[Rfam]
RNA sequence: GUGCACAGUGAACACCCAGAGAUGCUAAUGUGGCUCCCUCUGGUCUCUAAUUACUGUGCUACAGCAAUUCUGAUCUUUUCCUCUGCAUUAGGAGAGCUUCACCUCUCCUAAUGCAUUCAGUUGAUCAGGACAAAC
Numbered sequence: 001g002u003g004c005a006c007a008g009u010g011a012a013c014a015c016c017c018a019g020a021g022a023u024g025c026u027a028a029u030g031u032g033g034c035u036c037c038c039u040c041u042g043g044u045c046u047c048u049a050a051u052u053a054c055u056g057u058g059c060u061a062c063a064g065c066a067a068u069u070c071u072g073a074u075c076u077u078u079u080c081c082u083c084u085g086c087a088u089u090a091g092g093a094g095a096g097c098u099u100c101a102c103c104u105c106u107c108c109u110a111a112u113g114c115a116u117u118c119a120g121u122u123g124a125u126c127a128g129g130a131c132a133a134a135c
Base pairs, nucleotide, nucleotide: 003059004058005057006056007055008054010052014048016043017042018041019040020039024034025033026032061076063074065072066071083120084119085118086113087112088111089110090109091108092107093106094105095104096103